[Rfam]
RNA: mir-237 microRNA precursor family
Organism: Caenorhabditis elegans
RNA sequence: ACAUUGCGUGGUCCCUGAGAAUUCUCGAACAGCUUCAAAGUGUUCAAGCUGUCGAGUUUUGUCAAGGACCAAACAAUA
Numbered sequence: 001a002c003a004u005u006g007c008g009u010g011g012u013c014c015c016u017g018a019g020a021a022u023u024c025u026c027g028a029a030c031a032g033c034u035u036c037a038a039a040g041u042g043u044u045c046a047a048g049c050u051g052u053c054g055a056g057u058u059u060u061g062u063c064a065a066g067g068a069c070c071a072a073a074c075a076a077u078a
Stems, first nucleotide, its partner, number of pairs: 003077004009071006016064003021059001024056003029052002033048002